[Rfam]
RNA sequence: UGUACUUAUUGUUAGGUGAGGCUCCUAUAUGGAUACACGCUGCUACCCGGAAACAUCGAGAGAUGCCAAUGGGUUAACAAAUACUACCGUCUUAAGGUUUUAUUUAACGCAGCUAAUGAUUGACGCCGUAUAGUGCUAAAACUCAACGAUAUAUUUUAGUU
Numbered sequence: 001u002g003u004a005c006u007u008a009u010u011g012u013u014a015g016g017u018g019a020g021g022c023u024c025c026u027a028u029a030u031g032g033a034u035a036c037a038c039g040c041u042g043c044u045a046c047c048c049g050g051a052a053a054c055a056u057c058g059a060g061a062g063a064u065g066c067c068a069a070u071g072g073g074u075u076a077a078c079a080a081a082u083a084c085u086a087c088c089g090u091c092u093u094a095a096g097g098u099u100u101u102a103u104u105u106a107a108c109g110c111a112g113c114u115a116a117u118g119a120u121u122g123a124c125g126c127c128g129u130a131u132a133g134u135g136c137u138a139a140a141a142c143u144c145a146a147c148g149a150u151a152u153a154u155u156u157u158a159g160u161u
Stems, first nucleotide, its partner, number of pairs: 008154002011147002013095001015143003020137003025133008039113005045074005054065004080104004086098003115121002
Description: Shown here is a 161-nucleotide sequence from Clostridium oryzae, a member of the family "M-box riboswitch aptamer (ykoK leader)". A search with the family's covariance model found it, with a score of 138 bits. Rfam links the family to the GO terms regulation of gene expression and response to magnesium ion. On this family, see Barrick et al., Proc Natl Acad Sci U S A 2004: "New RNA motifs suggest an expanded scope for riboswitches in bacterial genetic control". The base pairs follow the family's consensus structure.